[Rfam]
RNA sequence: CCUGAUCAAGGAUGAUGAGAUUUUAUUGGUGACUGCUGGAUGAAACUUGCGGAUAUGGGACUGAGAUCAGAG
Numbered sequence: 001c002c003u004g005a006u007c008a009a010g011g012a013u014g015a016u017g018a019g020a021u022u023u024u025a026u027u028g029g030u031g032a033c034u035g036c037u038g039g040a041u042g043a044a045a046c047u048u049g050c051g052g053a054u055a056u057g058g059g060a061c062u063g064a065g066a067u068c069a070g071a072g
Stems, first nucleotide, its partner, number of pairs: 002070004

A member of the RNA family "Small nucleolar RNA SNORD99" from Sinocyclocheilus anshuiensis, 72 nucleotides long. Clan: SNORD58 clan. It scores 70 bits against the family's covariance model. Rfam 15.1 lists 673 matches to the family in 613 species. The base pairs follow the family's consensus structure, which was predicted with RNAalifold.